[Rfam]
RNA sequence: UGGCUGCGAUAAACAUUCAUUGCUGUCGGUGGGUUUGAUGUGAAUAUAACUCACUGAUCAUUGAAUGAACACUGCGGUUCA
Number, nucleotide and partner (000 for none) at each position: 001u081002g080003g079004c077005u076006g075007c074008g073009a000010u000011a000012a000013a000014c067015a066016u065017u064018c063019a062020u000021u060022g059023c000024u000025g058026u057027c056028g055029g054030u053031g052032g000033g050034u049035u048036u000037g000038a000039u000040g000041u000042g000043a000044a000045u000046a000047u000048a035049a034050c033051u000052c031053a030054c029055u028056g027057a026058u025059c022060a021061u000062u019063g018064a017065a016066u015067g014068a000069a000070c000071a000072c000073u008074g007075c006076g005077g004078u000079u003080c002081a001
Shown here is an 81-nucleotide RNA sequence from Esox lucius, a member of the family "mir-181 microRNA precursor family".
The family's consensus secondary structure was predicted with PFOLD.
The match comes from Rfam's covariance-model search (70 bits).
A reference for the family is Lagos-Quintana et al. (2003), "New microRNAs from mouse and human", RNA.
Taxonomically the source falls in Esox (Eukaryota, Teleostei, Osteoglossocephalai, Euteleosteomorpha).